[Rfam]
RNA sequence: CCGCAUUGAACACGGGUUUCGUCAGCAGCGGGCUGUAACUAACUUUUAACCAAGUUCGUUGUCGACGAAACCUGCAUACUGUGUGG
Dot-bracket structure: ((((((......(((((((((........(((((..................)))))........)))))))))......))))))